[Rfam]
RNA sequence: GUGCAUGUGAUGAGAAACUAUAUCAAACUCAUGACGGUCGUCUGAGACGCUUAGUGUGUAAUGGUGCAUUCAUAUUUUCUCUGAUGCUC
Numbered sequence: 001g002u003g004c005a006u007g008u009g010a011u012g013a014g015a016a017a018c019u020a021u022a023u024c025a026a027a028c029u030c031a032u033g034a035c036g037g038u039c040g041u042c043u044g045a046g047a048c049g050c051u052u053a054g055u056g057u058g059u060a061a062u063g064g065u066g067c068a069u070u071c072a073u074a075u076u077u078u079c080u081c082u083g084a085u086g087c088u089c
Base pairs, nucleotide, nucleotide: 001089003087004086048056049055050054
Record summary: Rfam assigns this 89-nucleotide sequence from Brachypodium distachyon to the family "Small nucleolar RNA Z161/Z228". The family has 11 seed sequences and 630 matches in Rfam 15.1. The literature on the family includes a 2003 paper in Nucleic Acids Res by Chen et al., "The high diversity of snoRNAs in plants: identification and comparative study of 120 snoRNA genes from Oryza sativa". Its family is annotated with nucleolus and RNA processing in the Gene Ontology. The family's consensus secondary structure was predicted with PFOLD. The family is grouped with related families in Rfam's "SNORD35 clan". It scores 66 bits against the family's covariance model. Taxonomically the source falls in Brachypodium (Eukaryota, Spermatophyta, Mesangiospermae, Poaceae).